[Rfam]
RNA sequence: UUUAACUGCAGCCACAUGAGUUUCCAUACACAACUUUAAUUGUCCGUCUUAUUUGAAUUUUUUUUUACAAUUAGUAUUUUUAUUGUUAUGAGAUAAUAAAAUAUGAAUAGUACUUUAUGCUUGACUUAUUUUUUAAUUUUUUUUAAAAAAAAUUUUUCAAAUUAGACGGACGAUCAAAGUUGGAACACGGAAAAUCAUGGUUACACUUAAA
Number, nucleotide and partner (000 for none) at each position: 001u000002u000003u000004a000005a000006c000007u000008g000009c000010a000011g000012c000013c000014a000015c000016a000017u000018g000019a000020g000021u000022u000023u000024c000025c000026a000027u000028a000029c000030a000031c182032a181033a180034c179035u178036u177037u176038a000039a174040u173041u172042g171043u170044c169045c168046g167047u166048c165049u164050u000051a162052u161053u000054u000055g000056a000057a000058u000059u000060u000061u000062u000063u000064u000065u000066u000067a000068c000069a000070a000071u000072u000073a000074g000075u000076a000077u000078u000079u000080u000081u000082a000083u000084u000085g000086u000087u000088a000089u000090g000091a000092g000093a000094u000095a000096a000097u000098a000099a000100a000101a000102u000103a000104u000105g000106a000107a000108u000109a000110g000111u000112a000113c000114u000115u000116u000117a000118u000119g000120c000121u000122u000123g000124a000125c000126u000127u000128a000129u000130u000131u000132u000133u000134u000135a000136a000137u000138u000139u000140u000141u000142u000143u000144u000145a000146a000147a000148a000149a000150a000151a000152a000153u000154u000155u000156u000157u000158c000159a000160a000161a052162u051163u000164a049165g048166a047167c046168g045169g044170a043171c042172g041173a040174u039175c000176a037177a036178a035179g034180u033181u032182g031183g000184a000185a000186c000187a000188c000189g000190g000191a000192a000193a000194a000195u000196c000197a000198u000199g000200g000201u000202u000203a000204c000205a000206c000207u000208u000209a000210a000211a000

Notes: MIR812 microRNA precursor family: a 211-nucleotide RNA from Oryza barthii. The family has 22 seed sequences and 57,451 matches in Rfam 15.1.